[Rfam]
RNA sequence: UGACGUUCUCAGGGCGGGGUGAAAUUCCCCACCGGCGGUAAUUGCUCUUAUCGAGCAUCAGCCCGCGAGCGCCUUUUUCGAGAGUCGAAGAAGGGUCAGCAGAUCCGGUGUAAUUCCGGAGCCGACGGUUAGAGUCCGGAUGGAAGAGAACAAAG
Numbered sequence: 001u002g003a004c005g006u007u008c009u010c011a012g013g014g015c016g017g018g019g020u021g022a023a024a025u026u027c028c029c030c031a032c033c034g035g036c037g038g039u040a041a042u043u044g045c046u047c048u049u050a051u052c053g054a055g056c057a058u059c060a061g062c063c064c065g066c067g068a069g070c071g072c073c074u075u076u077u078u079c080g081a082g083a084g085u086c087g088a089a090g091a092a093g094g095g096u097c098a099g100c101a102g103a104u105c106c107g108g109u110g111u112a113a114u115u116c117c118g119g120a121g122c123c124g125a126c127g128g129u130u131a132g133a134g135u136c137c138g139g140a141u142g143g144a145a146g147a148g149a150a151c152a153a154a155g
Base pairs, nucleotide, nucleotide: 005151006150007149008148009147010146017029018028019027031135032134033124034123035066036065037064038063061122062121069100070099104120105119106118107117108116126138127137128136

A member of the RNA family "FMN riboswitch aptamer (RFN element)" from Martelella mediterranea, 155 nucleotides long. The base pairs follow the family's consensus structure, which is taken from published work. For this family Rfam cites "Coenzyme recognition and gene regulation by a flavin mononucleotide riboswitch" (Serganov et al., Nature, 2009). NCBI's taxonomy places the organism under Bacteria, Alphaproteobacteria, Aurantimonadaceae, Martelella, Martelella mediterranea.